[Rfam]
Background: The record is a 99-nucleotide sequence from Microbacterium pseudoresistens, which matches "mraW RNA" in Rfam.

RNA sequence: GUUCUGACCUGGACUGCGAUUCCCAGCCGCUCAUCCCCGGCAUACCUUCCCCGGUGCCGGGUCGGGUGGAUGGGGAUCGGGGCCCAGGAUCGGAACUCU
Numbered sequence: 001g002u003u004c005u006g007a008c009c010u011g012g013a014c015u016g017c018g019a020u021u022c023c024c025a026g027c028c029g030c031u032c033a034u035c036c037c038c039g040g041c042a043u044a045c046c047u048u049c050c051c052c053g054g055u056g057c058c059g060g061g062u063c064g065g066g067u068g069g070a071u072g073g074g075g076a077u078c079g080g081g082g083c084c085c086a087g088g089a090u091c092g093g094a095a096c097u098c099u
Stems, first nucleotide, its partner, number of pairs: 010086003014082002018078002021075005027069006036061008
By type it is a cis-regulatory element. Lineage of the source: Bacteria > Bacillati > Actinomycetes > Micrococcales > Microbacterium.